[Rfam]
RNA: Glycine riboswitch aptamer
Organism: Ideonella dechloratans
RNA sequence: GACGCGGGAUCGGGAGAGUCCGCCCCUGGCCACCACGGCCCGGGUCGGCGCCGAAGGAGCAACCACCCCGGAAACUCUCAGGCUCAUGGACCGGUCCCACGAA
Numbered sequence: 001g002a003c004g005c006g007g008g009a010u011c012g013g014g015a016g017a018g019u020c021c022g023c024c025c026c027u028g029g030c031c032a033c034c035a036c037g038g039c040c041c042g043g044g045u046c047g048g049c050g051c052c053g054a055a056g057g058a059g060c061a062a063c064c065a066c067c068c069c070g071g072a073a074a075c076u077c078u079c080a081g082g083c084u085c086a087u088g089g090a091c092c093g094g095u096c097c098c099a100c101g102a103a
Base pairs, nucleotide, nucleotide: 006098007097008096009095010094011093012092013091020048021047022046050083051082052081053079054078057077058076059075063071064070